Shown here is an 87-nucleotide sequence from Actinomadura sp. KC345, a member of the family "ZMP/ZTP riboswitch aptamer (pfl RNA motif)". The base pairs follow the family's consensus structure, which is taken from published work. Rfam links the family to the GO terms one-carbon metabolic process and regulation of purine nucleotide biosynthetic process. NCBI's taxonomy places the organism under Bacteria, Bacillati, Actinomycetes, Streptosporangiales, Actinomadura.
[Rfam]
RNA sequence: UGGCGGCUACGCGACUGGCGCAGUCAAGGUGGAGACGACCACCGGGGAGCGAGAGUAGUCCGCACGCCGCGCGCCUGGGUGUACGGG
Numbered sequence: 001u002g003g004c005g006g007c008u009a010c011g012c013g014a015c016u017g018g019c020g021c022a023g024u025c026a027a028g029g030u031g032g033a034g035a036c037g038a039c040c041a042c043c044g045g046g047g048a049g050c051g052a053g054a055g056u057a058g059u060c061c062g063c064a065c066g067c068c069g070c071g072c073g074c075c076u077g078g079g080u081g082u083a084c085g086g087g
Stems, first nucleotide, its partner, number of pairs: 003059002006056003010051003015046002017075005029042004064082005